[Rfam]
RNA sequence: GACGCGAGAGCGCCGUAGGCAGGAGCGGGGGACCCAGGUUCUCCGCCGGACCGGACGGUACGGGCCCAACGCCCCGCCGCACGGCCCGGCUUGGGGUUAAGUCGCGUGCCACCACGGCACCGACCGGGCACUCACUCGGCCCGCACCCGACAGCUCACCUCGUAGGCGUCGGUGAGGAUCACU
Numbered sequence: 001g002a003c004g005c006g007a008g009a010g011c012g013c014c015g016u017a018g019g020c021a022g023g024a025g026c027g028g029g030g031g032a033c034c035c036a037g038g039u040u041c042u043c044c045g046c047c048g049g050a051c052c053g054g055a056c057g058g059u060a061c062g063g064g065c066c067c068a069a070c071g072c073c074c075c076g077c078c079g080c081a082c083g084g085c086c087c088g089g090c091u092u093g094g095g096g097u098u099a100a101g102u103c104g105c106g107u108g109c110c111a112c113c114a115c116g117g118c119a120c121c122g123a124c125c126g127g128g129c130a131c132u133c134a135c136u137c138g139g140c141c142c143g144c145a146c147c148c149g150a151c152a153g154c155u156c157a158c159c160u161c162g163u164a165g166g167c168g169u170c171g172g173u174g175a176g177g178a179u180c181a182c183u
Stems, first nucleotide, its partner, number of pairs: 011168004025163006035093006094148003102123003126142004
Record summary:
The family of this 183-nucleotide RNA sequence from Streptantibioticus cattleyicolor is "c-di-AMP riboswitch aptamer (ydaO/yuaA leader)".